Description: The family of this 177-nucleotide sequence from Oryza barthii is "MIR2118 microRNA precursor family". NCBI's taxonomy places the organism under Eukaryota, Liliopsida, Petrosaviidae, Oryzinae, Oryza. The literature on the family includes a 2009 paper in Nucleic Acids Res by Xue et al., "Characterization and expression profiles of miRNAs in rice seeds".
RNA sequence: CGGGGGAAGAGGGGGAAAUGUGUGUCCAAGAGCGGUUGGCAUGAGACCGUGGAGGAAAGCCCCAACACAGCCUCUCUUCUGAAUUCAGGGGUUAAGCACUUAAGCAUGUGUUUCGGUGUUUUCCCGAUGCCUGUCAUGCCUAUCGUUCUUCGGUGCUCCUUCCUCCUCCUCCAAGCU
Numbered sequence: 001c002g003g004g005g006g007a008a009g010a011g012g013g014g015g016a017a018a019u020g021u022g023u024g025u026c027c028a029a030g031a032g033c034g035g036u037u038g039g040c041a042u043g044a045g046a047c048c049g050u051g052g053a054g055g056a057a058a059g060c061c062c063c064a065a066c067a068c069a070g071c072c073u074c075u076c077u078u079c080u081g082a083a084u085u086c087a088g089g090g091g092u093u094a095a096g097c098a099c100u101u102a103a104g105c106a107u108g109u110g111u112u113u114c115g116g117u118g119u120u121u122u123c124c125c126g127a128u129g130c131c132u133g134u135c136a137u138g139c140c141u142a143u144c145g146u147u148c149u150u151c152g153g154u155g156c157u158c159c160u161u162c163c164u165c166c167u168c169c170u171c172c173a174a175g176c177u
Stems, first nucleotide, its partner, number of pairs: 009168005015162003020158001022156001025153002028150007036142001038140007046132001048129003052125001054124007